[Rfam]
RNA sequence: AAAGUUUUGGGUUUCGUGCCAGAAGUGCGUUUUACAUUGUAAGAAAUUUAUGAAAUCUGUAAAUGCACUUUCUGGUACGACAUUCCAGAACGU
Numbered sequence: 001a002a003a004g005u006u007u008u009g010g011g012u013u014u015c016g017u018g019c020c021a022g023a024a025g026u027g028c029g030u031u032u033u034a035c036a037u038u039g040u041a042a043g044a045a046a047u048u049u050a051u052g053a054a055a056u057c058u059g060u061a062a063a064u065g066c067a068c069u070u071u072c073u074g075g076u077a078c079g080a081c082a083u084u085c086c087a088g089a090a091c092g093u
Base pairs, nucleotide, nucleotide: 008087009086010085011084015079016078017077018076019075020074021073022072023071025068027066028065029064030063031062032061034060035059036058
A member of the RNA family "mir-277 microRNA precursor family" from Ignelater luminosus, 93 nucleotides long. On this family, see Liu et al., BMC Genomics 2010: "MicroRNAs of Bombyx mori identified by Solexa sequencing". The family's consensus secondary structure was predicted with RNAalifold. The family has 25 seed sequences and 170 matches in Rfam 15.1. A search with the family's covariance model found it, with a score of 82 bits.